[Rfam]
RNA sequence: AAGGUUGAAGUUUGAGGCCAUAGUAGAAGUGCUUACGGCACAGCCCAUCGGAUCCCAGCAAAUCUGCAAAUUCUGCU
Dot-bracket structure: ............[[.[[[...((((((((((.......))).]]]]].(((((........)))))....)))))))

A member of the RNA family "Mammalian CPEB3 ribozyme" from Crocodylus porosus, 77 nucleotides long. Lineage of the source: Eukaryota > Opisthokonta > Sauropsida > Archelosauria > Crocodylus. A search with the family's covariance model found it, with a score of 39 bits.